Shown here is a 72-nucleotide RNA from Streptococcus pasteurianus, a member of the family "L17 ribosomal protein downstream element". A search with the family's covariance model found it, with a score of 75 bits. Lineage of the source: Bacteria > Lactobacillales > Streptococcaceae > Streptococcus > Streptococcus pasteurianus.
RNA sequence: UGAGUGUUAUGAUGAUGGAACUAAAAAGUUCUUAGUCUAGCUCUGGUCUACCGCUAGGGUUUUUCCUAGCGG
Numbered sequence: 001u002g003a004g005u006g007u008u009a010u011g012a013u014g015a016u017g018g019a020a021c022u023a024a025a026a027a028g029u030u031c032u033u034a035g036u037c038u039a040g041c042u043c044u045g046g047u048c049u050a051c052c053g054c055u056a057g058g059g060u061u062u063u064u065c066c067u068a069g070c071g072g
Base pairs, nucleotide, nucleotide: 002043003042004041005040011037012036013035017032018031019030020029021028022027051072052071053070054069055068056067057066058065059064